RNA sequence: GCAUGGCUGAAUUCUGCACUAGCUUUCCUCAGUAGCUAAUGCAGUCAGACACCAUGCCAGAGCAAAUUCCUUUUUCACUCUGCCUGAUGUGCUUUUCAUAUGGGAAUGGGCAUGCCCUUGGAAGGGGAAUACAUAA
Numbered sequence: 001g002c003a004u005g006g007c008u009g010a011a012u013u014c015u016g017c018a019c020u021a022g023c024u025u026u027c028c029u030c031a032g033u034a035g036c037u038a039a040u041g042c043a044g045u046c047a048g049a050c051a052c053c054a055u056g057c058c059a060g061a062g063c064a065a066a067u068u069c070c071u072u073u074u075u076c077a078c079u080c081u082g083c084c085u086g087a088u089g090u091g092c093u094u095u096u097c098a099u100a101u102g103g104g105a106a107u108g109g110g111c112a113u114g115c116c117c118u119u120g121g122a123a124g125g126g127g128a129a130u131a132c133a134u135a136a
Stems, first nucleotide, its partner, number of pairs: 001057006014044005067129003070125004076121001086116001088114007
The family of this 136-nucleotide RNA sequence from Cephalopterus ornatus is "Small nucleolar RNA SNORA15". NCBI's taxonomy places the organism under Eukaryota, Metazoa, Euteleostomi, Sauropsida, Cephalopterus. Its family is annotated with RNA processing and nucleolus in the Gene Ontology. ACA15 is a member of the H/ACA class of snoRNA that guide the sites of modification of uridines to pseudouridines. The family's RNA type in Rfam is H/ACA-box small nucleolar RNA.